[Rfam]
RNA sequence: GCCGGACUGAUCUCAGCUGGUGCUGAGUGCGGACUUCAAAUCCGUAGCGGCCUCGCGGCCGAGCCGUUCGAUUCGGCCUGACCGGC
Numbered sequence: 001g002c003c004g005g006a007c008u009g010a011u012c013u014c015a016g017c018u019g020g021u022g023c024u025g026a027g028u029g030c031g032g033a034c035u036u037c038a039a040a041u042c043c044g045u046a047g048c049g050g051c052c053u054c055g056c057g058g059c060c061g062a063g064c065c066g067u068u069c070g071a072u073u074c075g076g077c078c079u080g081a082c083c084g085g086c
Base pairs, nucleotide, nucleotide: 001086002085003084004083005082007080009078012027013026014025015024016023017022028046029045030044031043032042033041048061049060050059051058052057063077064076065075066074
The record is an 86-nucleotide RNA sequence from Micractinium conductrix, which matches "Selenocysteine transfer RNA" in Rfam. Gene Ontology term of the family: triplet codon-amino acid adaptor activity. The source organism's lineage runs through Eukaryota, Viridiplantae, Chlorophyta, Chlorellales and Micractinium. The literature on the family includes a 2000 paper in FEBS Lett by Mizutani and Goto, "Eukaryotic selenocysteine tRNA has the 9/4 secondary structure".